small nucleolar RNA snoR135: a 144-nucleotide sequence from Vitis rotundifolia. By type it is an H/ACA-box small nucleolar RNA. The literature on the family includes a 2009 paper in Nucleic Acids Res by Chen and Wu, "Mining small RNA sequencing data: a new approach to identify small nucleolar RNAs in Arabidopsis". NCBI's taxonomy places the organism under Eukaryota, Gunneridae, Vitales, Vitaceae, Vitis. It scores 62 bits against the family's covariance model. The base pairs follow the family's consensus structure, which was predicted with RNAalifold. The family has 6 seed sequences and 837 matches in Rfam 15.1.
RNA sequence: UGAGCAGGGAUUGUGUGUAUCAGUGCUGUGCUAUUGUCAGUGCACUCUUUUUGCUGAAAGAAUUCUUUGCAAGACUUUGGGAAAGAUGGGUGGUUGCACUUCACACCAACCUUUGAAAUGCCAACCGUUGUCUAGGCCAAAAUA
Numbered sequence: 001u002g003a004g005c006a007g008g009g010a011u012u013g014u015g016u017g018u019a020u021c022a023g024u025g026c027u028g029u030g031c032u033a034u035u036g037u038c039a040g041u042g043c044a045c046u047c048u049u050u051u052u053g054c055u056g057a058a059a060g061a062a063u064u065c066u067u068u069g070c071a072a073g074a075c076u077u078u079g080g081g082a083a084a085g086a087u088g089g090g091u092g093g094u095u096g097c098a099c100u101u102c103a104c105a106c107c108a109a110c111c112u113u114u115g116a117a118a119u120g121c122c123a124a125c126c127g128u129u130g131u132c133u134a135g136g137c138c139a140a141a142a143u144a
Base pairs, nucleotide, nucleotide: 004070005069006068007067008066009065010064015045016044017043018042019041020040079138080137084133085132086131087130088129089128093125094124095123096122